The family of this 139-nucleotide RNA from Otolemur garnettii is "Small nucleolar RNA SNORA8". Its Rfam clan is "SNORA8 clan". About the family: ACA8 is a member of the H/ACA class of snoRNA that guide the sites of modification of uridines to pseudouridines. Pairs were carried over by alignment from the consensus structure, which was predicted with RNAfold. NCBI's taxonomy places the organism under Eukaryota, Gnathostomata, Teleostomi, Boreoeutheria, Otolemur.

RNA sequence: UAUACAACAUAGUAUCUGGACCCAGCAGUUUAUUCCUGCUGGGGUGUUCAAAGGUCAGUGCCACAGAAAUUCACUACCUAGAAUUGUUGGUUUUCUUAAUGUUGUGCAUGUUAAACCCGGUAUUUCUUUUUUUUUUUUU
Numbered sequence: 001u002a003u004a005c006a007a008c009a010u011a012g013u014a015u016c017u018g019g020a021c022c023c024a025g026c027a028g029u030u031u032a033u034u035c036c037u038g039c040u041g042g043g044g045u046g047u048u049c050a051a052a053g054g055u056c057a058g059u060g061c062c063a064c065a066g067a068a069a070u071u072c073a074c075u076a077c078c079u080a081g082a083a084u085u086g087u088u089g090g091u092u093u094u095c096u097u098a099a100u101g102u103u104g105u106g107c108a109u110g111u112u113a114a115a116c117c118c119g120g121u122a123u124u125u126c127u128u129u130u131u132u133u134u135u136u137u138u139u
Base pairs, nucleotide, nucleotide: 003060004059005058014055015054016053017052018047020045021044022043023042024040025039026038027037028036065127066126067125068124069123070122071120072119081107083105084104